[Rfam]
RNA sequence: GAGGGGUUUUGGCCCUUCGGAGCCGCCCUGUGGGGGAGGCUUCGAACCACCUCAUGCUGCGUUGGCUGAAAGACCGUCGUGGUGAGCCAUGAGGGAAGGGAGUCGUAUGAGGCGUCAGGU
Numbered sequence: 001g002a003g004g005g006g007u008u009u010u011g012g013c014c015c016u017u018c019g020g021a022g023c024c025g026c027c028c029u030g031u032g033g034g035g036g037a038g039g040c041u042u043c044g045a046a047c048c049a050c051c052u053c054a055u056g057c058u059g060c061g062u063u064g065g066c067u068g069a070a071a072g073a074c075c076g077u078c079g080u081g082g083u084g085a086g087c088c089a090u091g092a093g094g095g096a097a098g099g100g101a102g103u104c105g106u107a108u109g110a111g112g113c114g115u116c117a118g119g120u
Base pairs, nucleotide, nucleotide: 001018002017003016004015005014019043020042021041022040023039024038026036027035028034029033048119050094051093052092053091054090055089056083057082059080060079061078063076064075065074099116100115102113103112104111